[Rfam]
RNA sequence: GAAUUUAGCUUCUAGGGUUCCGGCUUUCAGAGUGUUGAUUUAGACGUUCUGCGUAAGCGACUGGUCCAAGAGGGGCAGGCUGGUUUCAGAGCAUUUCACCACUGAGGUCUCUGCCAGUUCCACGGCGGGAUAAAAGCCCGGGAGAC
Numbered sequence: 001g002a003a004u005u006u007a008g009c010u011u012c013u014a015g016g017g018u019u020c021c022g023g024c025u026u027u028c029a030g031a032g033u034g035u036u037g038a039u040u041u042a043g044a045c046g047u048u049c050u051g052c053g054u055a056a057g058c059g060a061c062u063g064g065u066c067c068a069a070g071a072g073g074g075g076c077a078g079g080c081u082g083g084u085u086u087c088a089g090a091g092c093a094u095u096u097c098a099c100c101a102c103u104g105a106g107g108u109c110u111c112u113g114c115c116a117g118u119u120c121c122a123c124g125g126c127g128g129g130a131u132a133a134a135a136g137c138c139c140g141g142g143a144g145a146c
Stems, first nucleotide, its partner, number of pairs: 008076005015067002020064002022061001023058004028053001078119007121141001123144001127139003
RNA: Guanidine-I riboswitch aptamer
Organism: Thermoleptolyngbya sichuanensis